[Rfam]
RNA: L31-Actinobacteria ribosomal protein leader
Nucleotides: 046
Base pairs, nucleotide, nucleotide: 003046004045005044007041008040009039010038015035016034017033018032019031021030022029023028
Number, partner (000 for none) and nucleotide at each position: 001000u002000c003046g004045g005044u006000u007041c008040c009039g010038g011000u012000u013000c014000a015035c016034g017033u018032c019031u020000c021030g022029c023028g024000a025000c026000c027000u028023c029022g030021c031019a032018g033017g034016c035015g036000a037000c038010c039009c040008g041007g042000c043000g044005a045004c046003c